[Rfam]
RNA sequence: AACCCAAAUGUGAGAAUUGGAGGAAAUUAAUCCCAUCAAUGUUUACUACAAAAUUUGGGUUUAAUUUCCUCCAAUAUCUUACCUUUGGUUU
Number, nucleotide and partner (000 for none) at each position: 001a000002a000003c000004c088005c087006a086007a085008a084009u000010g000011u081012g080013a079014g078015a000016a075017u074018u073019g072020g071021a070022g000023g068024a067025a066026a065027u064028u063029a062030a061031u000032c059033c058034c000035a000036u000037c000038a000039a000040u000041g000042u000043u000044u000045a000046c000047u000048a000049c000050a000051a000052a000053a000054u000055u000056u000057g000058g033059g032060u000061u030062u029063a028064a027065u026066u025067u024068c023069c000070u021071c020072c019073a018074a017075u016076a000077u000078c014079u013080u012081a011082c000083c000084u008085u007086u006087g005088g004089u000090u000091u000
Shown here is a 91-nucleotide sequence from Tripterygium wilfordii, a member of the family "MIR2275 microRNA precursor family".
The family has 13 seed sequences and 785 matches in Rfam 15.1.